Notes:
A member of the RNA family "mir-450 microRNA precursor family" from Orycteropus afer, 79 nucleotides long. The match comes from Rfam's covariance-model search (81 bits). For this family Rfam cites "MicroRNA transcriptome in the newborn mouse ovaries determined by massive parallel sequencing" (Ahn et al., Mol Hum Reprod, 2010). The base pairs follow the family's consensus structure, which was predicted with RNAalifold. Its family is annotated with miRNA-mediated post-transcriptional gene silencing and RISC complex in the Gene Ontology. Taxonomically the source falls in Orycteropus afer (Eukaryota, Bilateria, Vertebrata, Teleostomi).

[Rfam]
RNA sequence: ACAAAAUUAUUUUUGCAAUAUGUUCCUGAAUAUUCAAGAUAAGUGUAUUGGGAGCAUUUUGCAUCCAUAAUUUCCUAUC
Numbered sequence: 001a002c003a004a005a006a007u008u009a010u011u012u013u014u015g016c017a018a019u020a021u022g023u024u025c026c027u028g029a030a031u032a033u034u035c036a037a038g039a040u041a042a043g044u045g046u047a048u049u050g051g052g053a054g055c056a057u058u059u060u061g062c063a064u065c066c067a068u069a070a071u072u073u074c075c076u077a078u079c
Stems, first nucleotide, its partner, number of pairs: 004073007014063005020057008029049005